Overview
A member of the RNA family "terC RNA" from Novosphingobium hassiacum, 76 nucleotides long. Rfam classes the family as a cis-regulatory element.
Nucleotides: 076
Stems, first nucleotide, its partner, number of pairs: 006070002009067004022059005028052007
Number, partner (000 for none) and nucleotide at each position: 001000g002000u003000c004000g005000c006070g007069g008000a009067c010066c011065g012064g013000g014000c015000c016000c017000c018000u019000c020000u021000g022059g023058c024057g025056c026055g027000g028052c029051g030050a031049u032048u033047u034046g035000g036000c037000c038000a039000c040000u041000g042000a043000u044000g045000g046034c047033a048032a049031g050030u051029c052028g053000c054000u055026u056025g057024c058023g059022u060000g061000a062000u063000g064012u065011c066010g067009g068000a069007c070006c071000g072000c073000a074000u075000c076000g